[Rfam]
RNA sequence: UGUCUCCUCCAACUCUCCAAGAAUUGGAUUAACCCGCUACCGCAAGGUUGCGGGUUUUUUUU
Numbered sequence: 001u002g003u004c005u006c007c008u009c010c011a012a013c014u015c016u017c018c019a020a021g022a023a024u025u026g027g028a029u030u031a032a033c034c035c036g037c038u039a040c041c042g043c044a045a046g047g048u049u050g051c052g053g054g055u056u057u058u059u060u061u062u
Stems, first nucleotide, its partner, number of pairs: 008028005014022002032055006039048001
RNA: Betaproteobacteria toxic small RNA
Organism: Noviherbaspirillum sp. Root189